[Rfam]
RNA: mir-8517 microRNA precursor family
RNA sequence: UAAUAGGACGUUUUAGCUAUUGAACUGUUUUGUCACUCUCUAACUCAGAACAAAUUGUUCUUUGACAAAGAGGGACGAAACAGUUCAAUAGCUAAAACGUCCUAUAAC
Numbered sequence: 001u002a003a004u005a006g007g008a009c010g011u012u013u014u015a016g017c018u019a020u021u022g023a024a025c026u027g028u029u030u031u032g033u034c035a036c037u038c039u040c041u042a043a044c045u046c047a048g049a050a051c052a053a054a055u056u057g058u059u060c061u062u063u064g065a066c067a068a069a070g071a072g073g074g075a076c077g078a079a080a081c082a083g084u085u086c087a088a089u090a091g092c093u094a095a096a097a098c099g100u101c102c103u104a105u106a107a108c
Base pairs, nucleotide, nucleotide: 001107003105004104005103006102011097012096013095014094015093016092017091018090019089020088021087022086023085024084025083026082027081028080029069030068031067032066033065034064035063049059050058051057052056